[Rfam]
RNA sequence: AACAGCCUCUCGAAAUCGGUAUUCAGGUGCAGGUUUCAAACUGCCUGUAGGUGCUGCAGUCAAAAGCUGUGGUAUUGAGCGUUACAGGAAAAGGUUGAUGAAUCAAUCAAGU
Numbered sequence: 001a002a003c004a005g006c007c008u009c010u011c012g013a014a015a016u017c018g019g020u021a022u023u024c025a026g027g028u029g030c031a032g033g034u035u036u037c038a039a040a041c042u043g044c045c046u047g048u049a050g051g052u053g054c055u056g057c058a059g060u061c062a063a064a065a066g067c068u069g070u071g072g073u074a075u076u077g078a079g080c081g082u083u084a085c086a087g088g089a090a091a092a093g094g095u096u097g098a099u100g101a102a103u104c105a106a107u108c109a110a111g112u
Stems, first nucleotide, its partner, number of pairs: 012037006019030004042111001044088005049082001050076002053073003057069004093108006
RNA: Group II catalytic intron D1-D4-2
Organism: Acetivibrio clariflavus